Shown here is an 85-nucleotide RNA from Thermoanaerobacterium thermosaccharolyticum, a member of the family "pan motif". The family's RNA type in Rfam is cis-regulatory element. It scores 43 bits against the family's covariance model. Lineage of the source: Bacteria > Bacillati > Clostridia > Thermoanaerobacteraceae > Thermoanaerobacterium thermosaccharolyticum.
RNA sequence: AUGAUGGUAUCCGCAAUGGAACCAUACCCAAGACUAAGAUUUUGAAAAUUAAGCCUCGCCAGGAUCAUAUGACCGGGACGGGAGA
Number, nucleotide and partner (000 for none) at each position: 001a000002u000003g027004a025005u024006g023007g022008u021009a000010u020011c019012c000013g000014c000015a000016a000017u000018g000019g011020a010021a008022c007023c006024a005025u004026a000027c003028c000029c000030a000031a000032g000033a000034c000035u000036a000037a000038g000039a000040u000041u000042u000043u000044g000045a000046a000047a000048a000049u000050u000051a000052a000053g000054c000055c000056u081057c080058g079059c077060c076061a000062g074063g073064a000065u072066c071067a000068u000069a000070u000071g066072a065073c063074c062075g000076g060077g059078a000079c058080g057081g056082g000083a000084g000085a000